[Rfam]
RNA sequence: GGAUCGAUGGUGACUUGCACGUGUGUCUUCCCCGUUGGAAAGCUGAACAAAAUGGGUGCAAACUCUGUAGCGUCAUCCCCUUCAAAGUGAGGUCC
Number, nucleotide and partner (000 for none) at each position: 001g095002g094003a093004u092005c091006g000007a000008u000009g000010g000011u000012g000013a000014c000015u000016u000017g000018c000019a000020c000021g000022u000023g000024u000025g000026u000027c058028u000029u056030c055031c054032c000033c000034g000035u050036u049037g048038g000039a000040a000041a000042g000043c000044u000045g000046a000047a000048c037049a036050a035051a000052a000053u000054g031055g030056g029057u000058g027059c000060a000061a000062a000063c000064u000065c000066u000067g000068u000069a000070g000071c000072g000073u000074c000075a000076u000077c000078c000079c000080c000081u000082u000083c000084a000085a000086a000087g000088u000089g000090a000091g005092g004093u003094c002095c001
This 95-nucleotide sequence from Microcebus murinus belongs to the Rfam family "Small nucleolar RNA SNORD116".
The family has 48 seed sequences and 3,260 matches in Rfam 15.1.
Taxonomically the source falls in Microcebus (Eukaryota, Bilateria, Gnathostomata, Lemuriformes).
For this family Rfam cites "Identification of brain-specific and imprinted small nucleolar RNA genes exhibiting an unusual genomic organization" (Cavaille et al., Proc Natl Acad Sci U S A, 2000).
Gene Ontology terms of the family: RNA processing and nucleolus.
The match comes from Rfam's covariance-model search (67 bits).